[Rfam]
RNA sequence: ACGCAAGUCAAAGGGGAGUAGCGUUAGGUAUCUUACCUAAAACAAAGUCGUCAAUUCAUGGAUGGUAUCCAUCGGCUUUGUUGACAUGAGUAGAAGCAUGUCC
Numbered sequence: 001a002c003g004c005a006a007g008u009c010a011a012a013g014g015g016g017a018g019u020a021g022c023g024u025u026a027g028g029u030a031u032c033u034u035a036c037c038u039a040a041a042a043c044a045a046a047g048u049c050g051u052c053a054a055u056u057c058a059u060g061g062a063u064g065g066u067a068u069c070c071a072u073c074g075g076c077u078u079u080g081u082u083g084a085c086a087u088g089a090g091u092a093g094a095a096g097c098a099u100g101u102c103c
Base pairs, nucleotide, nucleotide: 025039026038027037041082042081043080044079045078046077047076048075049074050073058072059071060070061069062068
Rfam assigns this 103-nucleotide sequence from Bacillus sp. PK3_68 to the family "Manganese Mn2+ riboswitch aptamer (yybP-ykoY)". Lineage of the source: Bacteria > Bacilli > Caryophanales > Bacillaceae > Bacillus. The match comes from Rfam's covariance-model search (48 bits). The pairing is the family consensus, mapped onto this sequence.